mir-9223 microRNA precursor family: a 75-nucleotide RNA sequence from Myotis davidii. NCBI's taxonomy places the organism under Eukaryota, Eumetazoa, Teleostomi, Eutheria, Myotis. The base pairs follow the family's consensus structure, which was predicted with RNAalifold.
[Rfam]
RNA sequence: GGUGGUUUUUGGGUGAUGUACCCUGGAACCAGACUCCCUCCUCUCUGGUUCUGGAUGCAUCACCCAAGAACCUCA
Number, nucleotide and partner (000 for none) at each position: 001g000002g074003u000004g000005g071006u070007u069008u068009u067010u066011g065012g064013g063014u062015g061016a060017u059018g000019u057020a056021c000022c054023c053024u000025g052026g051027a050028a049029c048030c047031a046032g045033a044034c000035u000036c000037c000038c000039u000040c000041c000042u000043c000044u033045c032046u031047g030048g029049u028050u027051c026052u025053g023054g022055a000056u020057g019058c000059a017060u016061c015062a014063c013064c012065c011066a010067a009068g008069a007070a006071c005072c000073u000074c002075a000